[Rfam]
RNA: SAM riboswitch aptamer (S box leader)
RNA sequence: CUCUUAUCAAGAGAGGUGGAGGGACUGGCCCGAUGAAGCCCGGCAACCUGCCGUUUCCAUUAACGGUGUGGUGCCAAUUCCUGCGGAGAUCUUCUCUGGCAGAUGAGAG
Numbered sequence: 001c002u003c004u005u006a007u008c009a010a011g012a013g014a015g016g017u018g019g020a021g022g023g024a025c026u027g028g029c030c031c032g033a034u035g036a037a038g039c040c041c042g043g044c045a046a047c048c049u050g051c052c053g054u055u056u057c058c059a060u061u062a063a064c065g066g067u068g069u070g071g072u073g074c075c076a077a078u079u080c081c082u083g084c085g086g087a088g089a090u091c092u093u094c095u096c097u098g099g100c101a102g103a104u105g106a107g108a109g
Stems, first nucleotide, its partner, number of pairs: 001109008013041001015040003021031003025083001027081002042075004047071002050067004079101001084098006